[Rfam]
RNA sequence: ACCAAGGUAAGAGUAUUAGUGAGCCGACAUUAGGGCCCUGAAGUAAUGUUCAAUAUAUCUGGUUCCAGGGCCCUAAUGGGAAGAGGGAGAGGUUGGGUUUUAGUGGGUCUGGAUGUACCGGUAUUCGGACAUCAAUCCCACACUCCCCAUUGCAAAGGUUUUUGCAAUGGGCGUCUUUUGAAGAUUUCCCCCUCUCCAC
Numbered sequence: 001a002c003c004a005a006g007g008u009a010a011g012a013g014u015a016u017u018a019g020u021g022a023g024c025c026g027a028c029a030u031u032a033g034g035g036c037c038c039u040g041a042a043g044u045a046a047u048g049u050u051c052a053a054u055a056u057a058u059c060u061g062g063u064u065c066c067a068g069g070g071c072c073c074u075a076a077u078g079g080g081a082a083g084a085g086g087g088a089g090a091g092g093u094u095g096g097g098u099u100u101u102a103g104u105g106g107g108u109c110u111g112g113a114u115g116u117a118c119c120g121g122u123a124u125u126c127g128g129a130c131a132u133c134a135a136u137c138c139c140a141c142a143c144u145c146c147c148c149a150u151u152g153c154a155a156a157g158g159u160u161u162u163u164g165c166a167a168u169g170g171g172c173g174u175c176u177u178u179u180g181a182a183g184a185u186u187u188c189c190c191c192c193u194c195u196c197c198a199c
Stems, first nucleotide, its partner, number of pairs: 034072006077198003088195005095190003103141005112133005118128003143173001145171003
RNA: R2 RNA element
Organism: Diaphorina citri